[Rfam]
RNA sequence: ACCUCAUGAAAGACCUAGGUCGUGAGAUGUCCACGACAUCCAAAUUCUCACUACCUUGUCUUUCAUGCGGAC
Numbered sequence: 001a002c003c004u005c006a007u008g009a010a011a012g013a014c015c016u017a018g019g020u021c022g023u024g025a026g027a028u029g030u031c032c033a034c035g036a037c038a039u040c041c042a043a044a045u046u047c048u049c050a051c052u053a054c055c056u057u058g059u060c061u062u063u064c065a066u067g068c069g070g071a072c
Stems, first nucleotide, its partner, number of pairs: 008064007017056003022051006
The family of this 72-nucleotide sequence from Danaus chrysippus is "mir-71 microRNA precursor family".
Rfam links the family to the GO terms RISC complex and miRNA-mediated post-transcriptional gene silencing.
The literature on the family includes a 2009 paper in BMC Genomics by Li et al., "Direct sequencing and expression analysis of a large number of miRNAs in Aedes aegypti and a multi-species survey of novel mosquito miRNAs".
The organism belongs to Anosia, within Eukaryota.
The match comes from Rfam's covariance-model search (51 bits).
The family's consensus secondary structure was predicted with RNAalifold.